[Rfam]
RNA sequence: GAGUGUGCUCGCCGUGGCGAGACUAACCAGUUCUGCUGGGGAGUCGCAGCGAAAGCAAGAAGCCCGCAGCGCUUUUGCGUGAGGGGCCGCGUCGUAACAGGCGUGGAGUCACCGCGGCACGAUCCGAAACCGGUCGAUCCUGGCCUGGUCAGGGUGAAGCGAGGCGAAAGCCUCGUGGAGGCCCGCAAGCGUUGCUGUGAUACAAGCGCUCGCGUGAACUGGGUCAAGGGGUGAAAUGUCAAUCGAGAUCGGUGAUGGCUGGUU
Numbered sequence: 001g002a003g004u005g006u007g008c009u010c011g012c013c014g015u016g017g018c019g020a021g022a023c024u025a026a027c028c029a030g031u032u033c034u035g036c037u038g039g040g041g042a043g044u045c046g047c048a049g050c051g052a053a054a055g056c057a058a059g060a061a062g063c064c065c066g067c068a069g070c071g072c073u074u075u076u077g078c079g080u081g082a083g084g085g086g087c088c089g090c091g092u093c094g095u096a097a098c099a100g101g102c103g104u105g106g107a108g109u110c111a112c113c114g115c116g117g118c119a120c121g122a123u124c125c126g127a128a129a130c131c132g133g134u135c136g137a138u139c140c141u142g143g144c145c146u147g148g149u150c151a152g153g154g155u156g157a158a159g160c161g162a163g164g165c166g167a168a169a170g171c172c173u174c175g176u177g178g179a180g181g182c183c184c185g186c187a188a189g190c191g192u193u194g195c196u197g198u199g200a201u202a203c204a205a206g207c208g209c210u211c212g213c214g215u216g217a218a219c220u221g222g223g224u225c226a227a228g229g230g231g232u233g234a235a236a237u238g239u240c241a242a243u244c245g246a247g248a249u250c251g252g253u254g255a256u257g258g259c260u261g262g263u264u
Base pairs, nucleotide, nucleotide: 005120006119007118008117010116011115012114014112015111016110017109018108021045022044023043024042027039028038029037030036049056050055062087063086064085065084069080070079071078072077090103091102092101093100123262124261126259130252131251132250133249134248135247139228141226142225143224144223145222146221147220148219149218150216152184153183154182155181159176160175161174162173163172164171165170189213190212191211194209195208197207198206230240231239232238